[Rfam]
RNA sequence: ACCUUAUAUAGAUGUAGUGACGCAAGACAGUGACGCAUUUCCCUGUAAGGUGGUGUUUCAAUAGAAGUAUAAACAAUAAGUCUUGUUGUGAGGCUACGAGUCGAAAUAAGGUGAGUUUAUAUGGAAUAGGUUAACCGUAAGACCUUGAAUUGAGAUAUUCUAAAAUUGACCUAGGAAGGCAAACGCAAUUUCGCGAUUUUCGCUCUUUCUAGUUACGGUAUA
Numbered sequence: 001a002c003c004u005u006a007u008a009u010a011g012a013u014g015u016a017g018u019g020a021c022g023c024a025a026g027a028c029a030g031u032g033a034c035g036c037a038u039u040u041c042c043c044u045g046u047a048a049g050g051u052g053g054u055g056u057u058u059c060a061a062u063a064g065a066a067g068u069a070u071a072a073a074c075a076a077u078a079a080g081u082c083u084u085g086u087u088g089u090g091a092g093g094c095u096a097c098g099a100g101u102c103g104a105a106a107u108a109a110g111g112u113g114a115g116u117u118u119a120u121a122u123g124g125a126a127u128a129g130g131u132u133a134a135c136c137g138u139a140a141g142a143c144c145u146u147g148a149a150u151u152g153a154g155a156u157a158u159u160c161u162a163a164a165a166u167u168g169a170c171c172u173a174g175g176a177a178g179g180c181a182a183a184c185g186c187a188a189u190u191u192c193g194c195g196a197u198u199u200u201c202g203c204u205c206u207u208u209c210u211a212g213u214u215a216c217g218g219u220a221u222a
Base pairs, nucleotide, nucleotide: 001051002050003049004048005047006046007045008044010040011039012038013037014036015035017034018033020031021030022028067122068121069120070119071118072117073116074115081111082110083109084108085107086106087105092102093101095099128145129144130143131142132141134219135218136217137216138215139214140166147160148159149158150157171212172211173210174209175208176207177206178205179203180202
RNA: IS605-orfB-I RNA